[Rfam]
RNA sequence: GAGUUACGUUCCGUGGCAAGGUUAAGCGAUGUGAGUCGCGGAGCCGGAGCGAAAGCGAGUCUGAAUAGGGCGCCACAGUCGCGGGAUGUAGACCCGAAACCUAGUGAGCUACCCAUGGGCAGCGUGAAGCGAGGGUAAGACCUCGUGGAGGCGCGAACCUUCCUACGUUGCAAAGUGGUUGGAUGAUCUGUGGGUAGAGGUGAAAUGCUAAUCGAACUAGGAGAUAGCUGGUU
Numbered sequence: 001g002a003g004u005u006a007c008g009u010u011c012c013g014u015g016g017c018a019a020g021g022u023u024a025a026g027c028g029a030u031g032u033g034a035g036u037c038g039c040g041g042a043g044c045c046g047g048a049g050c051g052a053a054a055g056c057g058a059g060u061c062u063g064a065a066u067a068g069g070g071c072g073c074c075a076c077a078g079u080c081g082c083g084g085g086a087u088g089u090a091g092a093c094c095c096g097a098a099a100c101c102u103a104g105u106g107a108g109c110u111a112c113c114c115a116u117g118g119g120c121a122g123c124g125u126g127a128a129g130c131g132a133g134g135g136u137a138a139g140a141c142c143u144c145g146u147g148g149a150g151g152c153g154c155g156a157a158c159c160u161u162c163c164u165a166c167g168u169u170g171c172a173a174a175g176u177g178g179u180u181g182g183a184u185g186a187u188c189u190g191u192g193g194g195u196a197g198a199g200g201u202g203a204a205a206u207g208c209u210a211a212u213c214g215a216a217c218u219a220g221g222a223g224a225u226a227g228c229u230g231g232u233u
Stems, first nucleotide, its partner, number of pairs: 005090013020045004026039003049056002059071004093231002096228001100221006109197011120185001122154004129146006158182002163178004199209003
Notes:
The record is a 233-nucleotide part of an RNA from uncultured Chloroflexi bacterium HF0200_09I09, which matches "Bacterial large subunit ribosomal RNA" in Rfam. The sequence is in the family's curated seed alignment. A reference for the family is Cannone et al. (2002), "The comparative RNA web (CRW) site: an online database of comparative sequence and structure information for ribosomal, intron, and other RNAs", BMC Bioinformatics.